Record summary
This 48-nucleotide RNA belongs to the Rfam family "Mu-gpT-DE RNA".

RNA sequence: UCCUGACAGUCUUAGGACUGACACUAGCCAAGACAGGAGAUAAUAAUG
Numbered sequence: 001u002c003c004u005g006a007c008a009g010u011c012u013u014a015g016g017a018c019u020g021a022c023a024c025u026a027g028c029c030a031a032g033a034c035a036g037g038a039g040a041u042a043a044u045a046a047u048g
Base pairs, nucleotide, nucleotide: 002037003036004035005034007020008019009018010017011016
Pairs were carried over by alignment from the consensus structure, which is taken from published work. By type it is a small RNA.